[Rfam]
Rfam assigns this 84-nucleotide sequence from Macaca mulatta to the family "mir-184 microRNA precursor family".

Nucleotides: 084
Stems, first nucleotide, its partner, number of pairs: 012073009022063006030055002
Number, partner (000 for none) and nucleotide at each position: 001000u002000c003000a004000g005000u006000c007000a008000c009000g010000u011000c012073c013072c014071c015070u016069u017068a018067u019066c020065a021000c022063u023062u024061u025060u026059c027058c028000a029000g030055c031054c032000c033000a034000g035000c036000u037000u038000u039000a040000u041000g042000a043000c044000u045000g046000u047000a048000a049000g050000u051000g052000u053000u054031g055030g056000a057000c058027g059026g060025a061024g062023a063022a064000c065020u066019g067018a068017u069016a070015a071014g072013g073012g074000u075000a076000g077000g078000u079000g080000a081000u082000u083000g084000a
Notes
The base pairs follow the family's consensus structure, which was predicted with PFOLD.